[Rfam]
RNA sequence: GGGUCUAUAGCUCAGUGGUAGAGCAUUUGCCUGCAGAUCAAGAGGUCACCGGUUCGAACCCGGUUGGGCCCU
Numbered sequence: 001g002g003g004u005c006u007a008u009a010g011c012u013c014a015g016u017g018g019u020a021g022a023g024c025a026u027u028u029g030c031c032u033g034c035a036g037a038u039c040a041a042g043a044g045g046u047c048a049c050c051g052g053u054u055c056g057a058a059c060c061c062g063g064u065u066g067g068g069c070c071c072u
Base pairs, nucleotide, nucleotide: 001071002070003069004068005067006066007065010024011023012022013021026042027041028040029039048064049063050062051061052060
The family of this 72-nucleotide RNA from Populus deltoides is "tRNA". The family's consensus secondary structure is taken from published work. It scores 62 bits against the family's covariance model. About the family: Transfer RNA (tRNA) molecules are approximately 80 nucleotides in length.